Rfam assigns this 145-nucleotide sequence from Gossypium arboreum to the family "MIR7502 microRNA precursor family".
Rfam links the family to the GO terms RISC complex and miRNA-mediated post-transcriptional gene silencing.
The base pairs follow the family's consensus structure, which was predicted with RNAalifold.
NCBI's taxonomy places the organism under Eukaryota, Viridiplantae, Tracheophyta, Mesangiospermae, Gossypium.
RNA sequence: AAUUAAAAAUUUCAUUCAUUUCUAUUGUUAAAAAUUGAAAUGGCUGACAAAAUAACCAGACUGUUGCAUUUGGCAUAUCACGUAUACCUUACGCUGACAUAUAAGGACCAGUUUUUAACAGUAAAACUAGAUGUAAUUUUUAACA
Numbered sequence: 001a002a003u004u005a006a007a008a009a010u011u012u013c014a015u016u017c018a019u020u021u022c023u024a025u026u027g028u029u030a031a032a033a034a035u036u037g038a039a040a041u042g043g044c045u046g047a048c049a050a051a052a053u054a055a056c057c058a059g060a061c062u063g064u065u066g067c068a069u070u071u072g073g074c075a076u077a078u079c080a081c082g083u084a085u086a087c088c089u090u091a092c093g094c095u096g097a098c099a100u101a102u103a104a105g106g107a108c109c110a111g112u113u114u115u116u117a118a119c120a121g122u123a124a125a126a127c128u129a130g131a132u133g134u135a136a137u138u139u140u141u142a143a144c145a
Stems, first nucleotide, its partner, number of pairs: 003143009013133004018128001020126002023123004028118006